The record is a 349-nucleotide RNA from Paralteromonas sediminis, which matches "Bacterial RNase P class A" in Rfam. The family's consensus secondary structure is taken from published work. Taxonomically the source falls in Paralteromonas (Bacteria, Pseudomonadati, Gammaproteobacteria, Alteromonadaceae). It scores 284 bits against the family's covariance model.

[Rfam]
RNA sequence: GAUGUUGAAUACAAAACAACUUGGGUAGCGGAGGGGAGGAAAGUCCGGGCUCCACAGGGCAGGGUGCCAGAUAACGUCUGGGCGGCGCGAGCCGACGACAAGUGCAGCAGAGAGUAGACCGCCUAAGCGGAGCAAUCCGCCGGUAAGGCUGAAAGGGUGCGGUAAGAGCGCACCGCGCAACUGGUAACAGUUUGUGGCGAGGUAAACUCCACCCGGAGCAAGACCAAAUAGGCUUUCAAUACGCACGGCCCGUGCGGAAAGCGGGUAGGUUGCUUGAACCAGUCAGCAAUGGCUGGUCUAGAGGAAUGGUUGCCCACGACAGAACCCGGCUUAUCGGCCAACUCCACUA
Dot-bracket structure: ........................................(((.(((((((((...[[[[.((((((((((.....)))))(((((....)))).)((...((((.............(((((...(((((....))))).)))..)).......((((((.......))))))(((((((((....))).))))).)...))..)))))))))))))...((((......((((((....(((((.]]]]))))))))))).....))))......((((((((....))))))))...........................)))))))).................